[Rfam]
RNA sequence: UGAGUCAAGGGACAAAUGGACACAAAACGGAUGCUUGCAUACGUAUUUGUGUCUAUGAGGACCGCUAAAACAUGAGAAAGCAGCCAUUUUUUGUAAAAAAAUGAGCGAAUUUCGAAUGUUUGCGUGAUUUUGGGAGUGCAGAGCACGAAAAAAUCACGUAUGACUCA
Numbered sequence: 001u002g003a004g005u006c007a008a009g010g011g012a013c014a015a016a017u018g019g020a021c022a023c024a025a026a027a028c029g030g031a032u033g034c035u036u037g038c039a040u041a042c043g044u045a046u047u048u049g050u051g052u053c054u055a056u057g058a059g060g061a062c063c064g065c066u067a068a069a070a071c072a073u074g075a076g077a078a079a080g081c082a083g084c085c086a087u088u089u090u091u092u093g094u095a096a097a098a099a100a101a102u103g104a105g106c107g108a109a110u111u112u113c114g115a116a117u118g119u120u121u122g123c124g125u126g127a128u129u130u131u132g133g134g135a136g137u138g139c140a141g142a143g144c145a146c147g148a149a150a151a152a153a154u155c156a157c158g159u160a161u162g163a164c165u166c167a
Stems, first nucleotide, its partner, number of pairs: 001167007010062001013059001016056010029042001031040003068121006076113004083106002085103007125156007136146004